[Rfam]
RNA sequence: AAAACAAUUAUAGCGCCUGUACUGGAGAAAUUGGACGGACAAGUCAUCUCUAGUAGACGAGGAGAAGGAGUAUCGAAUUUUCGGCGGAUCCCUUCCGGCCAUGAAGCCUGGUCGUGAUGUCCAUUCUUAAAACAAUCGAGCGAUCGAUUGGACAACAAGAUGGAUAGGCUCAAAC
Numbered sequence: 001a002a003a004a005c006a007a008u009u010a011u012a013g014c015g016c017c018u019g020u021a022c023u024g025g026a027g028a029a030a031u032u033g034g035a036c037g038g039a040c041a042a043g044u045c046a047u048c049u050c051u052a053g054u055a056g057a058c059g060a061g062g063a064g065a066a067g068g069a070g071u072a073u074c075g076a077a078u079u080u081u082c083g084g085c086g087g088a089u090c091c092c093u094u095c096c097g098g099c100c101a102u103g104a105a106g107c108c109u110g111g112u113c114g115u116g117a118u119g120u121c122c123a124u125u126c127u128u129a130a131a132a133c134a135a136u137c138g139a140g141c142g143a144u145c146g147a148u149u150g151g152a153c154a155a156c157a158a159g160a161u162g163g164a165u166a167g168g169c170u171c172a173a174a175c
Base pairs, nucleotide, nucleotide: 020055021054022053023052024051025050026049027048029047064095065094066093067092068091073084074083075082076081096114097113098112099111100110101109119165120164121163122162123161124160125159133150134149135148136147137146138145139144
About this RNA: Shown here is a 175-nucleotide RNA from Planococcus sp. PAMC 21323, a member of the family "glmS glucosamine-6-phosphate activated ribozyme aptamer". A search with the family's covariance model found it, with a score of 114 bits. Pairs were carried over by alignment from the consensus structure, which is taken from published work.